About this RNA: Flavo-1 RNA: a 78-nucleotide RNA from Flavobacterium caeni.
RNA sequence: CCCUAGCCCCGAUGGAAGUGGAAAUCCUUUUUCGCGAGGAACGAGCGAAAAAGAUUGUAACGGAAAGCGGGAAACAGC
Numbered sequence: 001c002c003c004u005a006g007c008c009c010c011g012a013u014g015g016a017a018g019u020g021g022a023a024a025u026c027c028u029u030u031u032u033c034g035c036g037a038g039g040a041a042c043g044a045g046c047g048a049a050a051a052a053g054a055u056u057g058u059a060a061c062g063g064a065a066a067g068c069g070g071g072a073a074a075c076a077g078c
Base pairs, nucleotide, nucleotide: 009070010069011068013066018061019060023056024055025054026053029051030050031049032048033047034046035045
Pairs were carried over by alignment from the consensus structure, which is taken from published work. It scores 72 bits against the family's covariance model. NCBI's taxonomy places the organism under Bacteria, Bacteroidota, Flavobacteriia, Flavobacteriales, Flavobacterium.